This 92-nucleotide sequence from Aliikangiella marina belongs to the Rfam family "c-di-GMP-I riboswitch aptamer". The organism belongs to Aliikangiella, within Bacteria.
RNA sequence: CUGGAAAAAGGGCUGCCUGAUUCGAAAGGUCAGGUCCGCAAAGCUACCGGUCUAAGGGUGAAGUGUGAACCUAGGACAGCGGGGUUGCCAAA
Numbered sequence: 001c002u003g004g005a006a007a008a009a010g011g012g013c014u015g016c017c018u019g020a021u022u023c024g025a026a027a028g029g030u031c032a033g034g035u036c037c038g039c040a041a042a043g044c045u046a047c048c049g050g051u052c053u054a055a056g057g058g059u060g061a062a063g064u065g066u067g068a069a070c071c072u073a074g075g076a077c078a079g080c081g082g083g084g085u086u087g088c089c090a091a092a
Stems, first nucleotide, its partner, number of pairs: 012039002017033004022029002042086004047082003050077003057071003
Rfam links the family to the GO term cyclic-di-GMP binding.